[Rfam]
RNA sequence: CCGGGAGAGGUUCGCGAACUCCCUCUAUAAAAAACUAAGGAAAA
Numbered sequence: 001c002c003g004g005g006a007g008a009g010g011u012u013c014g015c016g017a018a019c020u021c022c023c024u025c026u027a028u029a030a031a032a033a034a035c036u037a038a039g040g041a042a043a044a
Stems, first nucleotide, its partner, number of pairs: 006026005016036001